[Rfam]
RNA sequence: ACAUCGAGAACCCUUUGAAUCACUACAUUACUUGAUUCAAAUGGUUCUCACAAA
Numbered sequence: 001a002c003a004u005c006g007a008g009a010a011c012c013c014u015u016u017g018a019a020u021c022a023c024u025a026c027a028u029u030a031c032u033u034g035a036u037u038c039a040a041a042u043g044g045u046u047c048u049c050a051c052a053a054a
Stems, first nucleotide, its partner, number of pairs: 006049007014041009
RNA: Plastid-ccsA-ndhD-1 3UTR RNA
Organism: Citrullus mucosospermus